Shown here is a 340-nucleotide RNA from Gluconacetobacter johannae, a member of the family "Alphaproteobacteria transfer-messenger RNA". For this family Rfam cites "Phylogenetic analysis of tmRNA secondary structure" (Williams and Bartel, RNA, 1996). The source organism's lineage runs through Bacteria, Pseudomonadati, Pseudomonadota, Acetobacterales and Gluconacetobacter.

RNA sequence: CCGCUUGCCAACGGCGGCCGCCAACCCUAUAUCCCAUGGUGCCGGAGGGGUUCGCCCCUUGGCUAUGGCGAUAAACGGCACGUGGAAUAAAUGUUGUGGACCCGGGGGCGGUACCCGGCGUCUCCACCAGAACGCUCUCCGCUACGACCCUUCGGGGCAGGGAGCCAUGGGGACGAAACAGGCUCGACACGCAUGGUAAAGACCUGCCUUUUGCCCGGUAUUGUACCACCGUCAUCGGGCUAAAUCACAAGUGCCAACGAUAACUCUGAGGUGCUCGCUGUCGCUGCAUAAGUGACAAGCGCGGUUCGGGAGGGCACCGGGCAACAGAAGCCCUCCCACU
Numbered sequence: 001c002c003g004c005u006u007g008c009c010a011a012c013g014g015c016g017g018c019c020g021c022c023a024a025c026c027c028u029a030u031a032u033c034c035c036a037u038g039g040u041g042c043c044g045g046a047g048g049g050g051u052u053c054g055c056c057c058c059u060u061g062g063c064u065a066u067g068g069c070g071a072u073a074a075a076c077g078g079c080a081c082g083u084g085g086a087a088u089a090a091a092u093g094u095u096g097u098g099g100a101c102c103c104g105g106g107g108g109c110g111g112u113a114c115c116c117g118g119c120g121u122c123u124c125c126a127c128c129a130g131a132a133c134g135c136u137c138u139c140c141g142c143u144a145c146g147a148c149c150c151u152u153c154g155g156g157g158c159a160g161g162g163a164g165c166c167a168u169g170g171g172g173a174c175g176a177a178a179c180a181g182g183c184u185c186g187a188c189a190c191g192c193a194u195g196g197u198a199a200a201g202a203c204c205u206g207c208c209u210u211u212u213g214c215c216c217g218g219u220a221u222u223g224u225a226c227c228a229c230c231g232u233c234a235u236c237g238g239g240c241u242a243a244a245u246c247a248c249a250a251g252u253g254c255c256a257a258c259g260a261u262a263a264c265u266c267u268g269a270g271g272u273g274c275u276c277g278c279u280g281u282c283g284c285u286g287c288a289u290a291a292g293u294g295a296c297a298a299g300c301g302c303g304g305u306u307c308g309g310g311a312g313g314g315c316a317c318c319g320g321g322c323a324a325c326a327g328a329a330g331c332c333c334u335c336c337c338a339c340u
Base pairs, nucleotide, nucleotide: 041063042062043061044060045059067215068214069213070212071211077208078207079206080205082203083202092193093192094191096190097189098188102118103117104116105115106114119175120174121173122172123171124170125169216231217230218229219228221242223240226238227237302319303318304317305316309336310335311334312333313332314331